[Rfam]
RNA sequence: UCCGUUCAUCUCCAGAGUUGGAGACGGAAGUAGGGAUUUUCCCGAAGGAACGCGCC
Number, nucleotide and partner (000 for none) at each position: 001u000002c000003c052004g051005u050006u049007c048008a000009u024010c023011u022012c021013c020014a000015g000016a000017g000018u000019u000020g013021g012022a011023g010024a009025c000026g000027g053028a000029a000030g000031u000032a000033g043034g042035g041036a000037u000038u000039u000040u000041c035042c034043c033044g000045a000046a000047g000048g007049a006050a005051c004052g003053c027054g000055c000056c000
The record is a 56-nucleotide sequence from Leptolyngbyaceae cyanobacterium M65_K2018_010, which matches "Glutamine riboswitch aptamer (glnA leader)" in Rfam. NCBI's taxonomy places the organism under Bacteria, Cyanobacteriota, Cyanophyceae, Leptolyngbyales, Leptolyngbyaceae. A reference for the family is Ames and Breaker (2011), "Bacterial aptamers that selectively bind glutamine", RNA Biol. Gene Ontology term of the family: glutamine binding.